[Rfam]
RNA: Small nucleolar RNA SNORA49
Organism: Acipenser ruthenus
RNA sequence: AAUCCCCUUCCUUACUCCAGGUGCUUCAAAUGCAGUGAAGUGUUCUGGCAUUGUCUGGGGAAAGAAUAAAGCGCUUGCAUAUCAUCUUUAUUGUGCUUCUAUUCCCUUUUAAGCCUUGUAUGUGAGCCAACAGA
Numbered sequence: 001a002a003u004c005c006c007c008u009u010c011c012u013u014a015c016u017c018c019a020g021g022u023g024c025u026u027c028a029a030a031u032g033c034a035g036u037g038a039a040g041u042g043u044u045c046u047g048g049c050a051u052u053g054u055c056u057g058g059g060g061a062a063a064g065a066a067u068a069a070a071g072c073g074c075u076u077g078c079a080u081a082u083c084a085u086c087u088u089u090a091u092u093g094u095g096c097u098u099c100u101a102u103u104c105c106c107u108u109u110u111a112a113g114c115c116u117u118g119u120a121u122g123u124g125a126g127c128c129a130a131c132a133g134a
Stems, first nucleotide, its partner, number of pairs: 003061005011053001017048005023041005073127002076124002086113003090109001093107001095106001